[Rfam]
Description
A member of the RNA family "MIR394 microRNA precursor family" from Macleaya cordata, 120 nucleotides long. Rfam 15.1 lists 724 matches to the family in 216 species. Rfam links the family to the GO terms RISC complex and miRNA-mediated post-transcriptional gene silencing. For this family Rfam cites "MicroRNAs and other small RNAs enriched in the Arabidopsis RNA-dependent RNA polymerase-2 mutant" (Lu et al., Genome Res, 2006).

RNA sequence: CUUACAGAGUUUAUUGGCAUUCUGUCCACCUCCAAAUGAUCAUCAAAGCAAAGCCCCCCAUAAACCCUAGUCCUUGAUUUGAAAGUGGAGGUGGGCAUCCUGUCAACAAAGCUCUGUUGG
Numbered sequence: 001c002u003u004a005c006a007g008a009g010u011u012u013a014u015u016g017g018c019a020u021u022c023u024g025u026c027c028a029c030c031u032c033c034a035a036a037u038g039a040u041c042a043u044c045a046a047a048g049c050a051a052a053g054c055c056c057c058c059c060a061u062a063a064a065c066c067c068u069a070g071u072c073c074u075u076g077a078u079u080u081g082a083a084a085g086u087g088g089a090g091g092u093g094g095g096c097a098u099c100c101u102g103u104c105a106a107c108a109a110a111g112c113u114c115u116g117u118u119g120g
Stems, first nucleotide, its partner, number of pairs: 011110001014106006023097011